[Rfam]
Record summary: Makes More Granules Regulator RNA (mmgR): a 72-nucleotide RNA from Novosphingobium nitrogenifigens. NCBI's taxonomy places the organism under Bacteria, Pseudomonadati, Pseudomonadota, Novosphingobium, Novosphingobium nitrogenifigens. Pairs were carried over by alignment from the consensus structure. The family has 87 seed sequences and 1,791 matches in Rfam 15.1. It scores 47 bits against the family's covariance model.
Nucleotides: 072
Stems, first nucleotide, its partner, number of pairs: 008018004039057008
Number, partner (000 for none) and nucleotide at each position: 001000a002000g003000a004000a005000c006000c007000u008018g009017c010016c011015u012000u013000u014000c015011a016010g017009g018008c019000a020000u021000c022000c023000u024000c025000u026000c027000c028000c029000a030000a031000a032000c033000c034000u035000u036000c037000c038000a039057g040056a041055g042054c043053c044052g045051c046050u047000u048000u049000u050046a051045g052044c053043g054042g055041c056040u057039c058000u059000u060000u061000u062000u063000u064000u065000g066000c067000c068000c069000g070000c071000a072000g